[Rfam]
RNA sequence: AACCACACUAUCAAUGAAUGGUUUCACAUGUGAGAUGACGUGGUUGUUCCACCUAGAAUGAGGGCGUGGCAUCCUAUUAAUUUCGUGCGAUGGCUGUUAAUAGGAUUCCACGUCCUUGUCCUAAGUGGAACAACCAACCAUAUCAUAUCACGAGUGAAUUCAUUCAUUGAUAGUGUGGUU
Numbered sequence: 001a002a003c004c005a006c007a008c009u010a011u012c013a014a015u016g017a018a019u020g021g022u023u024u025c026a027c028a029u030g031u032g033a034g035a036u037g038a039c040g041u042g043g044u045u046g047u048u049c050c051a052c053c054u055a056g057a058a059u060g061a062g063g064g065c066g067u068g069g070c071a072u073c074c075u076a077u078u079a080a081u082u083u084c085g086u087g088c089g090a091u092g093g094c095u096g097u098u099a100a101u102a103g104g105a106u107u108c109c110a111c112g113u114c115c116u117u118g119u120c121c122u123a124a125g126u127g128g129a130a131c132a133a134c135c136a137a138c139c140a141u142a143u144c145a146u147a148u149c150a151c152g153a154g155u156g157a158a159u160u161c162a163u164u165c166a167u168u169g170a171u172a173g174u175g176u177g178g179u180u
Base pairs, nucleotide, nucleotide: 001180002179003178004177005176006175007174009172010171011170012169013168014167015166017164018163019162021160023158024157025156026155027154030151031150032149033148035146036145037144038143041136042135043134044133045132046131047130048129051126052125054123055122058119063114064113065112069108071106072105073104074103075102076101077100078099079098080097081096
RNA: MIR807 microRNA precursor family
Organism: Oryza glumipatula